Shown here is a 138-nucleotide RNA from Parafrankia colletiae, a member of the family "Group II catalytic intron D1-D4-4". Rfam 15.1 lists 840 matches to the family in 506 species. A search with the family's covariance model found it, with a score of 94 bits. Pairs were carried over by alignment from the consensus structure. For this family Rfam cites "Group II introns: structure and catalytic versatility of large natural ribozymes" (Lehmann and Schmidt, Crit Rev Biochem Mol Biol, 2003). Rfam describes the family as follows. Group II introns are found in rRNA, tRNA and mRNA of organelles in fungi, plants and protists, and also in mRNA in bacteria. Rfam links the family to the GO term Group II intron splicing.

[Rfam]
RNA sequence: CAGCCGGUGAAAGUCCGGCCCGUGGAGGUGUCAGAACCCGCAGUAGCUGGUUCCCGACGUCGGGAGAGAUCCCAGGCGUCGAAGCGGAACGACAAAGUCCCUGUCAGGGGAUGAGCAAAAGACCGGUCCGUAGCAUGA
Number, nucleotide and partner (000 for none) at each position: 001c000002a000003g000004c000005c000006g000007g000008u000009g000010a000011a000012a000013g000014u000015c000016c000017g000018g000019c000020c043021c000022g041023u040024g039025g000026a000027g000028g000029u000030g000031u000032c000033a000034g000035a000036a000037c000038c000039c024040g023041c022042a000043g020044u000045a000046g000047c000048u000049g000050g090051u089052u088053c087054c086055c081056g080057a079058c078059g077060u076061c000062g000063g000064g071065a070066g000067a000068g000069a000070u065071c064072c000073c000074a000075g000076g060077c059078g058079u057080c056081g055082a000083a000084g000085c000086g054087g053088a052089a051090c050091g000092a000093c000094a000095a000096a000097g112098u111099c110100c109101c108102u000103g000104u000105c000106a000107g000108g101109g100110g099111a098112u097113g000114a000115g131116c130117a000118a000119a000120a000121g000122a000123c000124c000125g000126g000127u000128c000129c000130g116131u115132a000133g000134c000135a000136u000137g000138a000